The family of this 102-nucleotide sequence from Moritella sp. Urea-trap-13 is "TPP riboswitch aptamer (THI element)". Rfam describes the family as follows. Vitamin B(1) in its active form thiamin pyrophosphate (TPP) is an essential coenzyme that is synthesised by coupling of pyrimidine and thiazole moieties in bacteria. The family's consensus secondary structure is taken from published work. A search with the family's covariance model found it, with a score of 71 bits. The organism belongs to Moritella, within Bacteria.
RNA sequence: GACCUCUUGUCGGAGUGCUUUAGGGCUGAGACCAUUUAAAUAUGGGAUCCGUGGAACCUGAUCAGGCUAAUACCUGCGUAAGGAAACAAGAGUGAUUAAUAC
Number, nucleotide and partner (000 for none) at each position: 001g000002a000003c000004c000005u000006c090007u089008u088009g087010u086011c051012g050013g049014a048015g000016u045017g026018c025019u024020u000021u000022a000023g000024g019025g018026c017027u000028g000029a000030g000031a000032c000033c044034a043035u042036u000037u000038a000039a000040a000041u000042a035043u034044g033045g016046g000047a000048u014049c013050c012051g011052u000053g000054g000055a000056a000057c083058c082059u081060g000061a000062u000063c076064a075065g074066g073067c000068u000069a000070a000071u000072a000073c066074c065075u064076g063077c000078g000079u000080a000081a059082g058083g057084a000085a000086a010087c009088a008089a007090g006091a000092g000093u000094g000095a000096u000097u000098a000099a000100u000101a000102c000